[Rfam]
RNA sequence: AAAGACAUUUGAGAUCAUAGUGAUCCCAAAAAAAAAUUGUGGAUAGUUUUUUAAAAAAAGAAGACUAUAUUUUAUUUUGCACAUAGAAAUUCAAAUUUAAUCAACAUAUUGUGGAAAACCCUGUUGAAAAACGCUUAAAAAGUGGAUAACUCUUCGGGAGCAUUAUCAAAACUAGCUUUUCAGGAAAACUUUUUAAGUAUUAAUACUUCAUCAAAAAAAAUAAAAUAUAGUUUAAAAAGUAACAUAAUCUCUUGUUAUAACUAUG
Numbered sequence: 001a002a003a004g005a006c007a008u009u010u011g012a013g014a015u016c017a018u019a020g021u022g023a024u025c026c027c028a029a030a031a032a033a034a035a036a037u038u039g040u041g042g043a044u045a046g047u048u049u050u051u052u053a054a055a056a057a058a059a060g061a062a063g064a065c066u067a068u069a070u071u072u073u074a075u076u077u078u079g080c081a082c083a084u085a086g087a088a089a090u091u092c093a094a095a096u097u098u099a100a101u102c103a104a105c106a107u108a109u110u111g112u113g114g115a116a117a118a119c120c121c122u123g124u125u126g127a128a129a130a131a132c133g134c135u136u137a138a139a140a141a142g143u144g145g146a147u148a149a150c151u152c153u154u155c156g157g158g159a160g161c162a163u164u165a166u167c168a169a170a171a172c173u174a175g176c177u178u179u180u181c182a183g184g185a186a187a188a189c190u191u192u193u194u195a196a197g198u199a200u201u202a203a204u205a206c207u208u209c210a211u212c213a214a215a216a217a218a219a220a221u222a223a224a225a226u227a228u229a230g231u232u233u234a235a236a237a238a239g240u241a242a243c244a245u246a247a248u249c250u251c252u253u254g255u256u257a258u259a260a261c262u263a264u265g
Base pairs, nucleotide, nucleotide: 007178010175012173013172018168020166021165022164024159025158026157027156029154032151037146038144039143040142046132047131048130049129050128051127052126053124055122071100072099074097076095077094078093079092101115102114104112105111179257184252191244194241195240198237200235201234202233203232205231206230207229210226211225

This 265-nucleotide RNA from Prochlorococcus marinus belongs to the Rfam family "Cyanobacterial functional RNA 17". It is annotated as a small RNA. NCBI's taxonomy places the organism under Bacteria, Cyanophyceae, Synechococcales, Prochlorococcaceae, Prochlorococcus marinus. Pairs were carried over by alignment from the consensus structure, which was predicted with mfold. A search with the family's covariance model found it, with a score of 113 bits.